This 46-nucleotide RNA from Ibidorhyncha struthersii belongs to the Rfam family "Histone 3' UTR stem-loop". It is annotated as a cis-regulatory element. About the family: The mRNAs of metazoan histone genes lack a poly-A tail. 3' end processing occurs at a site between a highly conserved stem-loop (modelled by this family) and a purine rich region around 20 nts downstream (the histone downstream element, or HDE). The stem-loop is bound by a 31 kDa stem-loop binding protein (SLBP - also termed the histone hairpin binding protein, or HBP). Together with U7 snRNA binding of the HDE, SLBP binding nucleate s the formation of the processing complex. The histone 3' UTR stem-loop is also involved in nucleocytoplasmic transport of the mRNA, and in stability regulation and translation efficiency in the cytoplasm.
[Rfam]
RNA sequence: CCUAAGGCUCUUUUAAGAGCCCCCACGAUUUCCUAAAGAGAGCUGU
Number, nucleotide and partner (000 for none) at each position: 001c000002c000003u000004a000005a000006g021007g020008c019009u018010c017011u016012u000013u000014u000015a000016a011017g010018a009019g008020c007021c006022c000023c000024c000025a000026c000027g000028a000029u000030u000031u000032c000033c000034u000035a000036a000037a000038g000039a000040g000041a000042g000043c000044u000045g000046u000